[Rfam]
Rfam assigns this 294-nucleotide RNA from Pseudomonas syringae group genomosp. 3 to the family "anti ponA RNA". By type it is an antisense RNA. A search with the family's covariance model found it, with a score of 169 bits.
RNA sequence: GAAGUUGUCGUCUUCGGCCGAUAACAGCGCGUUGAUGAAGUUGGGCGGGAUUUCGGCAAAGCGAAUCGGGGUCCGGCGCAUCUCGCCGAACUCGGCAAUCAGCUUGCCGUCGCUGCUGAACACGCGCAGGGGAAUUUGCAGUUGAAUGCUUCGCAGCGCUUCGACAGAGGGCAGGGUCGGGCUCAGAUACAGAAACGCGCCGCUCAGGCCGAGUAACAGCGAGCAGAAUACCGCUACGAGGGACCACCAGAAAAACUUCAGCAGGCGUAUCAAGGCUUUUGGAUUUCCAGAAAA
Numbered sequence: 001g002a003a004g005u006u007g008u009c010g011u012c013u014u015c016g017g018c019c020g021a022u023a024a025c026a027g028c029g030c031g032u033u034g035a036u037g038a039a040g041u042u043g044g045g046c047g048g049g050a051u052u053u054c055g056g057c058a059a060a061g062c063g064a065a066u067c068g069g070g071g072u073c074c075g076g077c078g079c080a081u082c083u084c085g086c087c088g089a090a091c092u093c094g095g096c097a098a099u100c101a102g103c104u105u106g107c108c109g110u111c112g113c114u115g116c117u118g119a120a121c122a123c124g125c126g127c128a129g130g131g132g133a134a135u136u137u138g139c140a141g142u143u144g145a146a147u148g149c150u151u152c153g154c155a156g157c158g159c160u161u162c163g164a165c166a167g168a169g170g171g172c173a174g175g176g177u178c179g180g181g182c183u184c185a186g187a188u189a190c191a192g193a194a195a196c197g198c199g200c201c202g203c204u205c206a207g208g209c210c211g212a213g214u215a216a217c218a219g220c221g222a223g224c225a226g227a228a229u230a231c232c233g234c235u236a237c238g239a240g241g242g243a244c245c246a247c248c249a250g251a252a253a254a255a256c257u258u259c260a261g262c263a264g265g266c267g268u269a270u271c272a273a274g275g276c277u278u279u280u281g282g283a284u285u286u287c288c289a290g291a292a293a294a
Stems, first nucleotide, its partner, number of pairs: 010172006017165001019163003025045001029041002047084005054078002057075001062069001086095003101160003105155003108148003115142004120137001122135001125131001177289001179287003183283002186279002197268005202262003206258002213237002217233001219231001

Rfam links the family to the GO term response to antibiotic. The organism belongs to Pseudomonas syringae pv. tomato, within Bacteria.